[Rfam]
A member of the RNA family "let-7 microRNA precursor family" from Brassicogethes aeneus, 73 nucleotides long. Pairs were carried over by alignment from the consensus structure, which was predicted with RNAalifold. For this family Rfam cites "Cryo-EM Structure of Human Dicer and Its Complexes with a Pre-miRNA Substrate" (Liu et al., Cell, 2018).
RNA sequence: UUUGGUGAGGUAGUAGGUUGUAUAGUUGAAUUACAUCUCUUUGGAGUACUGUGCAGCCUGCUAACUUUCCAGA
Numbered sequence: 001u002u003u004g005g006u007g008a009g010g011u012a013g014u015a016g017g018u019u020g021u022a023u024a025g026u027u028g029a030a031u032u033a034c035a036u037c038u039c040u041u042u043g044g045a046g047u048a049c050u051g052u053g054c055a056g057c058c059u060g061c062u063a064a065c066u067u068u069c070c071a072g073a
Base pairs, nucleotide, nucleotide: 001073002072003071004070005069007067008066009065011063012062013061014060015059016058017057018056019055020054021053022052023051024050025049026048039046040045